[Rfam]
The family of this 155-nucleotide RNA from Populus trichocarpa is "MIR2912 microRNA precursor family". The family has 2 seed sequences and 15,051 matches in Rfam 15.1. NCBI's taxonomy places the organism under Eukaryota, Euphyllophyta, eudicotyledons, Salicaceae, Populus. Rfam links the family to the GO terms miRNA-mediated post-transcriptional gene silencing and RISC complex. It scores 115 bits against the family's covariance model. The base pairs follow the family's consensus structure, which was predicted with RNAalifold.
RNA sequence: UCUAGAACUCGAGAUAUGGGUUGAACACUGAAUAGUGUCUGGGCUGCAGGACAGAUUCAGACUUCUUCGUUGUUGCUACAAUUUGGACUUGAAACCGGCCUUGUUAAAUCUUGGACUCCCAUGAAAGUAGUAGACCUAUGUCUCACCUUUCCAUC
Numbered sequence: 001u002c003u004a005g006a007a008c009u010c011g012a013g014a015u016a017u018g019g020g021u022u023g024a025a026c027a028c029u030g031a032a033u034a035g036u037g038u039c040u041g042g043g044c045u046g047c048a049g050g051a052c053a054g055a056u057u058c059a060g061a062c063u064u065c066u067u068c069g070u071u072g073u074u075g076c077u078a079c080a081a082u083u084u085g086g087a088c089u090u091g092a093a094a095c096c097g098g099c100c101u102u103g104u105u106a107a108a109u110c111u112u113g114g115a116c117u118c119c120c121a122u123g124a125a126a127g128u129a130g131u132a133g134a135c136c137u138a139u140g141u142c143u144c145a146c147c148u149u150u151c152c153a154u155c
Stems, first nucleotide, its partner, number of pairs: 003153001005151003009145001011144010021133003027128003035122003041119003045115001048112004054105003060099001062098002072088003